[Rfam]
RNA: mir-3492 microRNA precursor family
RNA sequence: AGCUUUUUGAAUCCGUGCAGAGAUUUCGUCAGGCUCCAACUCACUAGGGUCGAUCAGAAUUCCAAGAUAAGUGGAGUU
Numbered sequence: 001a002g003c004u005u006u007u008u009g010a011a012u013c014c015g016u017g018c019a020g021a022g023a024u025u026u027c028g029u030c031a032g033g034c035u036c037c038a039a040c041u042c043a044c045u046a047g048g049g050u051c052g053a054u055c056a057g058a059a060u061u062c063c064a065a066g067a068u069a070a071g072u073g074g075a076g077u078u
Stems, first nucleotide, its partner, number of pairs: 002077005008071001011068003016064002020062003024058003028054003
Dot-bracket structure: .(((((.(..(((..((..(((.(((.(((.....................))).))).))))).)))..).))))).